mir-21 microRNA precursor family: a 72-nucleotide sequence from Chiloscyllium punctatum.
The literature on the family includes a 2006 paper in FEBS Lett by Xu et al., "Identification of microRNAs from different tissues of chicken embryo and adult chicken".
Rfam links the family to the GO terms RISC complex and miRNA-mediated post-transcriptional gene silencing.
The organism belongs to Chiloscyllium, within Eukaryota.
[Rfam]
RNA sequence: UGUGAGAUAGCUUAUCAGACUGGUGUUGGCUGUUAGCUCAGUUGGCGACAACAGUUGGUAGGCUAUCUGACG
Numbered sequence: 001u002g003u004g005a006g007a008u009a010g011c012u013u014a015u016c017a018g019a020c021u022g023g024u025g026u027u028g029g030c031u032g033u034u035a036g037c038u039c040a041g042u043u044g045g046c047g048a049c050a051a052c053a054g055u056u057g058g059u060a061g062g063c064u065a066u067c068u069g070a071c072g
Base pairs, nucleotide, nucleotide: 008065009064010063011062012061013060014059015058018056019055020054021053022052024050025049026048027047028046030044
Dot-bracket structure: .......((((((((..(((((.(((((.(.............).))))).))))).)))))))).......